[Rfam]
RNA sequence: UUUACCGGAGGCUUUAUGGAUCCCGAUCCCACCCCGCUUCCCUUAACGGGAAUUCUGUUCCGGUAAGCACGCCUUUUGUCGCUGCUUUACCGGAUGCGUAAGGCAGUGACGCAAC
Numbered sequence: 001u002u003u004a005c006c007g008g009a010g011g012c013u014u015u016a017u018g019g020a021u022c023c024c025g026a027u028c029c030c031a032c033c034c035c036g037c038u039u040c041c042c043u044u045a046a047c048g049g050g051a052a053u054u055c056u057g058u059u060c061c062g063g064u065a066a067g068c069a070c071g072c073c074u075u076u077u078g079u080c081g082c083u084g085c086u087u088u089a090c091c092g093g094a095u096g097c098g099u100a101a102g103g104c105a106g107u108g109a110c111g112c113a114a115c
Stems, first nucleotide, its partner, number of pairs: 001067010017031003038051004081107010
Dot-bracket structure: ((((((((((......(((.........)))......((((......))))......)))))))))).............((((((((((.......))))))))))........
The record is a 115-nucleotide RNA from Atlantibacter hermannii, which matches "Magnesium riboswitch aptamer (Magnesium responsive RNA element)" in Rfam. Pairs were carried over by alignment from the consensus structure, which is taken from published work. About the family: The Magnesium sensor RNA element is a cis-regulatory element that regulates the expression of the magnesium transporter protein MgtA. It is located in the 5' UTR of this gene. The element adopts different structures depending on the presence or absence of Mg2+, this has the affect of regulating whether transcription reads through the mgtA coding region or stops within the 5' UTR. For this family Rfam cites "A Mg2+-responding RNA that controls the expression of a Mg2+ transporter" (Groisman et al., Cold Spring Harb Symp Quant Biol, 2006).